Annotation
The record is a 600-nucleotide part of an RNA from Drosophila mojavensis, which matches "Eukaryotic small subunit ribosomal RNA" in Rfam. The family has 90 seed sequences and 75,755 matches in Rfam 15.1. Pairs were carried over by alignment from the consensus structure, which is taken from published work. The source organism's lineage runs through Eukaryota, Insecta, Aparaglossata, Brachycera and mojavensis species complex. It scores 1459 bits against the family's covariance model. Clan: SSU clan. Its family is annotated with structural constituent of ribosome and ribosome in the Gene Ontology.

RNA sequence: CGGUUAAAACGUUCGUAGUUGAACUUGUGCUUCAUACGGGUAGUACAAAUUACAAUUGUGGUUAGUACUAUACCUUUAUGUAUGUAAGCGUAUUACCGGUGGAGUUCUUAUAUUUAAUUAAGUACUUGUACUUUUUUAAAUAUUCCUCCUAUUUAAAAACCUGCAUUAGUGCUCUUCAUCGAGUGUUAUUGUGGGCCGGUACAAUUACUUUGAACAAAUUAGAGUGCUUAAAGCAGGCUUCAAAUGCCUGAAUAUUCUGUGCAUGGGAUAAUGAAAUAAGACCUCUGUUCUGCUUUCAUUGGUUUUCAGAUCAAGAGGUAAUGAUUAAUAGAAGCAGUUUGGGGGCAUUAGUAUUACGACGCGAGAGGUGAAAUUCUUGGACCGUCGUAAGACUAACUUAAGCGAAAGCAUUUGCCAAAGAUGUUUUCAUUAAUCAAGACGAAAGUAAGAGUUCGAAGCGAUCAGAUACCGCCCUAGUCUAACCAUAAACGAUGCCUGCUGACCAUUGGGUGUAACUACUUGUAAUGCUCGCUCAGGCACUUCCCGGGAAACCGAAGCUUUUGGGCUCCGGGGGAAGUAUGGUUGCAAAGCUGAAACUUA
Numbered sequence: 001c002g003g004u005u006a007a008a009a010c011g012u013u014c015g016u017a018g019u020u021g022a023a024c025u026u027g028u029g030c031u032u033c034a035u036a037c038g039g040g041u042a043g044u045a046c047a048a049a050u051u052a053c054a055a056u057u058g059u060g061g062u063u064a065g066u067a068c069u070a071u072a073c074c075u076u077u078a079u080g081u082a083u084g085u086a087a088g089c090g091u092a093u094u095a096c097c098g099g100u101g102g103a104g105u106u107c108u109u110a111u112a113u114u115u116a117a118u119u120a121a122g123u124a125c126u127u128g129u130a131c132u133u134u135u136u137u138a139a140a141u142a143u144u145c146c147u148c149c150u151a152u153u154u155a156a157a158a159a160c161c162u163g164c165a166u167u168a169g170u171g172c173u174c175u176u177c178a179u180c181g182a183g184u185g186u187u188a189u190u191g192u193g194g195g196c197c198g199g200u201a202c203a204a205u206u207a208c209u210u211u212g213a214a215c216a217a218a219u220u221a222g223a224g225u226g227c228u229u230a231a232a233g234c235a236g237g238c239u240u241c242a243a244a245u246g247c248c249u250g251a252a253u254a255u256u257c258u259g260u261g262c263a264u265g266g267g268a269u270a271a272u273g274a275a276a277u278a279a280g281a282c283c284u285c286u287g288u289u290c291u292g293c294u295u296u297c298a299u300u301g302g303u304u305u306u307c308a309g310a311u312c313a314a315g316a317g318g319u320a321a322u323g324a325u326u327a328a329u330a331g332a333a334g335c336a337g338u339u340u341g342g343g344g345g346c347a348u349u350a351g352u353a354u355u356a357c358g359a360c361g362c363g364a365g366a367g368g369u370g371a372a373a374u375u376c377u378u379g380g381a382c383c384g385u386c387g388u389a390a391g392a393c394u395a396a397c398u399u400a401a402g403c404g405a406a407a408g409c410a411u412u413u414g415c416c417a418a419a420g421a422u423g424u425u426u427u428c429a430u431u432a433a434u435c436a437a438g439a440c441g442a443a444a445g446u447a448a449g450a451g452u453u454c455g456a457a458g459c460g461a462u463c464a465g466a467u468a469c470c471g472c473c474c475u476a477g478u479c480u481a482a483c484c485a486u487a488a489a490c491g492a493u494g495c496c497u498g499c500u501g502a503c504c505a506u507u508g509g510g511u512g513u514a515a516c517u518a519c520u521u522g523u524a525a526u527g528c529u530c531g532c533u534c535a536g537g538c539a540c541u542u543c544c545c546g547g548g549a550a551a552c553c554g555a556a557g558c559u560u561u562u563g564g565g566c567u568c569c570g571g572g573g574g575a576a577g578u579a580u581g582g583u584u585g586c587a588a589a590g591c592u593g594a595a596a597c598u599u600a
Stems, first nucleotide, its partner, number of pairs: 001570003009567001011440001013439002018434003331428004335423002338421003344416004350394002354390008365376003399410001402409002445483002448480002454477001458473001459471002494566003498558002501542002506536007516527001546553002572599003581592004